[Rfam]
RNA sequence: CCCACCGAAGUAGAUCUCAGUCUAGCCCAAGUGGACUUUGUUGGCGUUGUAGAGCACUGAUAGAAUAAGUUUGGGAUCGAAAGAUCCUACUUUUCUUUCAAACUCCGAAGGUGCCAAUAGGUAAGAAGCUUGGAGACGGGUUUAUGUGGGGUAAGCCUCAUAACCGAGAGGGGAGCAACCCAGACUAGAGUUAAGGUCCCCAAAUGUUAACUAAGUGUCAAACGGAAAAGUGUCUUCGAGCGAAGACAGCAGGAAGGUAGGCUUAGAAGCAGCCAUCCUUUAAAGAAUGUGUAACAACUCACCUGUCGAGCUCGUCGGCCUUGAAAAUGGACGGGGCUCAAGUUAACUACCGAUACUUUAGACCACGAAUAAUAUCGUGUGUGGUAGGUGGGCGUAGUGAGCGGGCAGAAGUAGGGUCGUGAGAUCCUGUGGACCGCUUUCUAUUGCAGAU
Numbered sequence: 001c002c003c004a005c006c007g008a009a010g011u012a013g014a015u016c017u018c019a020g021u022c023u024a025g026c027c028c029a030a031g032u033g034g035a036c037u038u039u040g041u042u043g044g045c046g047u048u049g050u051a052g053a054g055c056a057c058u059g060a061u062a063g064a065a066u067a068a069g070u071u072u073g074g075g076a077u078c079g080a081a082a083g084a085u086c087c088u089a090c091u092u093u094u095c096u097u098u099c100a101a102a103c104u105c106c107g108a109a110g111g112u113g114c115c116a117a118u119a120g121g122u123a124a125g126a127a128g129c130u131u132g133g134a135g136a137c138g139g140g141u142u143u144a145u146g147u148g149g150g151g152u153a154a155g156c157c158u159c160a161u162a163a164c165c166g167a168g169a170g171g172g173g174a175g176c177a178a179c180c181c182a183g184a185c186u187a188g189a190g191u192u193a194a195g196g197u198c199c200c201c202a203a204a205u206g207u208u209a210a211c212u213a214a215g216u217g218u219c220a221a222a223c224g225g226a227a228a229a230g231u232g233u234c235u236u237c238g239a240g241c242g243a244a245g246a247c248a249g250c251a252g253g254a255a256g257g258u259a260g261g262c263u264u265a266g267a268a269g270c271a272g273c274c275a276u277c278c279u280u281u282a283a284a285g286a287a288u289g290u291g292u293a294a295c296a297a298c299u300c301a302c303c304u305g306u307c308g309a310g311c312u313c314g315u316c317g318g319c320c321u322u323g324a325a326a327a328u329g330g331a332c333g334g335g336g337c338u339c340a341a342g343u344u345a346a347c348u349a350c351c352g353a354u355a356c357u358u359u360a361g362a363c364c365a366c367g368a369a370u371a372a373u374a375u376c377g378u379g380u381g382u383g384g385u386a387g388g389u390g391g392g393c394g395u396a397g398u399g400a401g402c403g404g405g406c407a408g409a410a411g412u413a414g415g416g417u418c419g420u421g422a423g424a425u426c427c428u429g430u431g432g433a434c435c436g437c438u439u440u441c442u443a444u445u446g447c448a449g450a451u
Stems, first nucleotide, its partner, number of pairs: 001392006011024005026135001027133006036121003040118008052106001053104002059099002062096004067092003073088006139165002142163005148158002170181003185361007195351003204348001206347006228322003232319003237314005249306005255279003260274003280284001285300001289298002362382002364379005393446001395443003399439006411430008
The record is a 451-nucleotide part of an RNA from uncultured marine crenarchaeote AD1000-325-A12, which matches "Archaeal large subunit ribosomal RNA" in Rfam. A reference for the family is Yusupov et al. (2001), "Crystal structure of the ribosome at 5.5 A resolution", Science. The source organism's lineage runs through Archaea, Thermoproteati, Nitrososphaerota, Nitrososphaeria and Nitrosopumilales. The base pairs follow the family's consensus structure, which is taken from published work.